[Rfam]
RNA sequence: UAUUGAUAAAGGCAAACCCAUUGAAAGAUGGCGACGCAAAGCUAUAGGGGCUACGGCGAAUCUCGCUAAGCCAGCCAGUUACCGAU
Numbered sequence: 001u002a003u004u005g006a007u008a009a010a011g012g013c014a015a016a017c018c019c020a021u022u023g024a025a026a027g028a029u030g031g032c033g034a035c036g037c038a039a040a041g042c043u044a045u046a047g048g049g050g051c052u053a054c055g056g057c058g059a060a061u062c063u064c065g066c067u068a069a070g071c072c073a074g075c076c077a078g079u080u081a082c083c084g085a086u
Base pairs, nucleotide, nucleotide: 012037013036018031019030020029021028022027040080041079042078043077047076048075049072050071051070056066057065058064059063